[Rfam]
RNA sequence: CUUGCAGCACGAGGUGAAGCAGGUGGUUCUGCUCGGCGCUCAGCAGCGGCCACAUCUCCACCUGCAGCGCCUUGACGGCUUCCGUGUCCUUCUCGUGGG
Numbered sequence: 001c002u003u004g005c006a007g008c009a010c011g012a013g014g015u016g017a018a019g020c021a022g023g024u025g026g027u028u029c030u031g032c033u034c035g036g037c038g039c040u041c042a043g044c045a046g047c048g049g050c051c052a053c054a055u056c057u058c059c060a061c062c063u064g065c066a067g068c069g070c071c072u073u074g075a076c077g078g079c080u081u082c083c084g085u086g087u088c089c090u091u092c093u094c095g096u097g098g099g
Base pairs, nucleotide, nucleotide: 005097006096007094011091012090013089014088019083021081022080023079024078026076027075028074030069031068032067033066036065037064038063046061048059049058
Dot-bracket structure: ....(((...((((....(.((((.(((.((((..(((.......(.((........)).).)))))))....))).)))).)....))))..).))..
The family of this 99-nucleotide RNA from Myotis lucifugus is "mir-1184 microRNA precursor family". Its family is annotated with miRNA-mediated post-transcriptional gene silencing and RISC complex in the Gene Ontology. Pairs were carried over by alignment from the consensus structure, which was predicted with RNAalifold. The match comes from Rfam's covariance-model search (84 bits).